[Rfam]
RNA sequence: UCAGUUACAAUCCAGCAUCUGGGGCACACACAACGAGUAUCUGAUUACUCUCUUAUUUUGCCCCGGGAAGGUCUGAGAAUCGGCCAAGCCAUGUUGUUUCGCUUCGUGCGAGGCUCUAUUUUCUAGCAGGAAACCUGUAUGAUUACAGGGCGAGAGUACCAGAAAUCCUGCCCAGGUGUUGCCGUUGCCCAGCAACCGCCGCCUGAUGGCAUUGAAAACUCUCGUGGCCAGCCUUUUUAGUGCGAUGUGCUUGCUGCCUUCGGGUAGAACUCAAUUCAGACUAAUCUGUGACUGA
Numbered sequence: 001u002c003a004g005u006u007a008c009a010a011u012c013c014a015g016c017a018u019c020u021g022g023g024g025c026a027c028a029c030a031c032a033a034c035g036a037g038u039a040u041c042u043g044a045u046u047a048c049u050c051u052c053u054u055a056u057u058u059u060g061c062c063c064c065g066g067g068a069a070g071g072u073c074u075g076a077g078a079a080u081c082g083g084c085c086a087a088g089c090c091a092u093g094u095u096g097u098u099u100c101g102c103u104u105c106g107u108g109c110g111a112g113g114c115u116c117u118a119u120u121u122u123c124u125a126g127c128a129g130g131a132a133a134c135c136u137g138u139a140u141g142a143u144u145a146c147a148g149g150g151c152g153a154g155a156g157u158a159c160c161a162g163a164a165a166u167c168c169u170g171c172c173c174a175g176g177u178g179u180u181g182c183c184g185u186u187g188c189c190c191a192g193c194a195a196c197c198g199c200c201g202c203c204u205g206a207u208g209g210c211a212u213u214g215a216a217a218a219c220u221c222u223c224g225u226g227g228c229c230a231g232c233c234u235u236u237u238u239a240g241u242g243c244g245a246u247g248u249g250c251u252u253g254c255u256g257c258c259u260u261c262g263g264g265u266a267g268a269a270c271u272c273a274a275u276u277c278a279g280a281c282u283a284a285u286c287u288g289u290g291a292c293u294g295a
Base pairs, nucleotide, nucleotide: 001295002294003293004292007289008288009287012253014251015250016249017248018247021064022063023062024061025060035050036049037048038047039046073279074278075277076276077275082229083228084227085226119133120132121131122130123129134149135148136147137146138145139144150225151224152223153222154221155220156219168209169208254267255266256265257264258263
Shown here is a 295-nucleotide RNA sequence from Drosophila ananassae, a member of the family "Nuclear RNase P". Pairs were carried over by alignment from the consensus structure, which is taken from published work. Rfam's curators write: Ribonuclease P (RNase P) is a ubiquitous endoribonuclease, found in archaea, bacteria and eukarya as well as chloroplasts and mitochondria. Lineage of the source: Eukaryota > Eumetazoa > Protostomia > Drosophilini > ananassae species complex.